[Rfam]
RNA sequence: UAAACUCUGAAGAGCCGCCCGUUACGUCGUCGGGCGCACCGAAGGAGCAAGCGGCAGCGCAUGGCGCCGCCGUGAAACUCUCAGGUCCAGAACAGAGGGGGCGCU
Numbered sequence: 001u002a003a004a005c006u007c008u009g010a011a012g013a014g015c016c017g018c019c020c021g022u023u024a025c026g027u028c029g030u031c032g033g034g035c036g037c038a039c040c041g042a043a044g045g046a047g048c049a050a051g052c053g054g055c056a057g058c059g060c061a062u063g064g065c066g067c068c069g070c071c072g073u074g075a076a077a078c079u080c081u082c083a084g085g086u087c088c089a090g091a092a093c094a095g096a097g098g099g100g101g102c103g104c105u
Base pairs, nucleotide, nucleotide: 005097006096007095008094009093016036017035018034019033020032021031038086039085040084041082042081045080046079047078051073052072053071054070055069

The record is a 105-nucleotide RNA sequence from Halopseudomonas bauzanensis, which matches "Glycine riboswitch aptamer" in Rfam.
A search with the family's covariance model found it, with a score of 44 bits.